[Rfam]
RNA: Y RNA
RNA sequence: GGCUGGUCUGAUGGUAGUAGGUUAUCAGAACUUUAUAACAUUAGUUUCACUAAAGUUGGUAUACAACUCCCCACUGCUAAAUUUGACUAGCUUUAA
Numbered sequence: 001g002g003c004u005g006g007u008c009u010g011a012u013g014g015u016a017g018u019a020g021g022u023u024a025u026c027a028g029a030a031c032u033u034u035a036u037a038a039c040a041u042u043a044g045u046u047u048c049a050c051u052a053a054a055g056u057u058g059g060u061a062u063a064c065a066a067c068u069c070c071c072c073a074c075u076g077c078u079a080a081a082u083u084u085g086a087c088u089a090g091c092u093u094u095a096a
Base pairs, nucleotide, nucleotide: 001092002091003090004089005088006087007086008085010084011083015079016075017074018073020071021070027060030057